[Rfam]
The family of this 88-nucleotide RNA from Anaerobacillus alkaliphilus is "c-di-GMP-I riboswitch aptamer".
RNA sequence: UAAUGAAAAAGGCAAACUUAUUGAAAGAUAAGGACGCAAAACUAUGGGCCUAAGGGAAGUGAAUUCCUACGGUUGCCAAGUUGCCAUG
Numbered sequence: 001u002a003a004u005g006a007a008a009a010a011g012g013c014a015a016a017c018u019u020a021u022u023g024a025a026a027g028a029u030a031a032g033g034a035c036g037c038a039a040a041a042c043u044a045u046g047g048g049c050c051u052a053a054g055g056g057a058a059g060u061g062a063a064u065u066c067c068u069a070c071g072g073u074u075g076c077c078a079a080g081u082u083g084c085c086a087u088g
Stems, first nucleotide, its partner, number of pairs: 012037002017032006040082004045078003048073003055067004

The match comes from Rfam's covariance-model search (87 bits). The organism belongs to Anaerobacillus, within Bacteria. Pairs were carried over by alignment from the consensus structure, which is taken from published work.